[Rfam]
RNA: Vault RNA
Organism: Chanos chanos
RNA sequence: GCGCUGGCGUGGCUCAGGGGUUACUUCACAGAAUUGGCUCUGACAUACAAUCGCUGCUGUUGGUGGCGGUUCGAACCCCGGGCGCUGUCCAGCGUUUUU
Dot-bracket structure: .((((((....((((.((((....(((.............................................))))))))))).....)))))).....
Numbered sequence: 001g002c003g004c005u006g007g008c009g010u011g012g013c014u015c016a017g018g019g020g021u022u023a024c025u026u027c028a029c030a031g032a033a034u035u036g037g038c039u040c041u042g043a044c045a046u047a048c049a050a051u052c053g054c055u056g057c058u059g060u061u062g063g064u065g066g067c068g069g070u071u072c073g074a075a076c077c078c079c080g081g082g083c084g085c086u087g088u089c090c091a092g093c094g095u096u097u098u099u
Stems, first nucleotide, its partner, number of pairs: 002094006012083004017079004025075003